[Rfam]
The family of this 62-nucleotide RNA sequence from Saimiri boliviensis is "U7 small nuclear RNA".
Rfam describes the family as follows. Animal histone pre-mRNAs are spliced by a different mechanism than nuclear pre-mRNAs and self-splicing introns. This processing involves the U7 snRNP, which contains only one RNA species: U7. The 5' end of U7 RNA is thought to base-pair to a conserved spacer element downstream of the cleavage site in histone pre-mRNA. This family contains a number of annotated U7 pseudogenes.
RNA sequence: CAGUGUUACAGCUCUUCUGGAAUUUGACUAGCAGCUUUUCCAGUCUUUACCAGAAAGCCCUU
Numbered sequence: 001c002a003g004u005g006u007u008a009c010a011g012c013u014c015u016u017c018u019g020g021a022a023u024u025u026g027a028c029u030a031g032c033a034g035c036u037u038u039u040c041c042a043g044u045c046u047u048u049a050c051c052a053g054a055a056a057g058c059c060c061u062u
Stems, first nucleotide, its partner, number of pairs: 034059001036057005043050002
About this RNA
The family's consensus secondary structure was predicted with PFOLD. The match comes from Rfam's covariance-model search (49 bits).